[Rfam]
RNA sequence: AAGCCAUAGCAGGUGCUUUUGCUGUUUGUGCCUGCGAAUCGCCGAGCGAAGGAGAACGACCGGCAGCAAGGCGAGUGGUCA
Numbered sequence: 001a002a003g004c005c006a007u008a009g010c011a012g013g014u015g016c017u018u019u020u021g022c023u024g025u026u027u028g029u030g031c032c033u034g035c036g037a038a039u040c041g042c043c044g045a046g047c048g049a050a051g052g053a054g055a056a057c058g059a060c061c062g063g064c065a066g067c068a069a070g071g072c073g074a075g076u077g078g079u080c081a
Base pairs, nucleotide, nucleotide: 003079004078005077006076009035010034011033012032040073041072042071043070046067047066
CyVA-1 RNA: an 81-nucleotide RNA from Gloeobacter kilaueensis. About the family: Cyanobacteria, Acidobacteria (1 example), Verrucomicrobia (1 example). Taxonomically the source falls in Gloeobacter kilaueensis (Bacteria, Bacillati, Gloeobacteraceae, Gloeobacter).